Rfam assigns this 74-nucleotide RNA sequence from Amphibalanus amphitrite to the family "mir-219 microRNA precursor family". On this family, see Lim et al., Science 2003: "Vertebrate microRNA genes". Rfam 15.1 lists 1,318 matches to the family in 774 species.
RNA sequence: AUGAGUUAUGAUUGUCCAAACGCAAUUCUUGUAUUAUUUAUCACCAAGAAUAGUAUUUGGACAUCGCGGCUCGU
Numbered sequence: 001a002u003g004a005g006u007u008a009u010g011a012u013u014g015u016c017c018a019a020a021c022g023c024a025a026u027u028c029u030u031g032u033a034u035u036a037u038u039u040a041u042c043a044c045c046a047a048g049a050a051u052a053g054u055a056u057u058u059g060g061a062c063a064u065c066g067c068g069g070c071u072c073g074u
Stems, first nucleotide, its partner, number of pairs: 002073006009066004014062005022054002025051007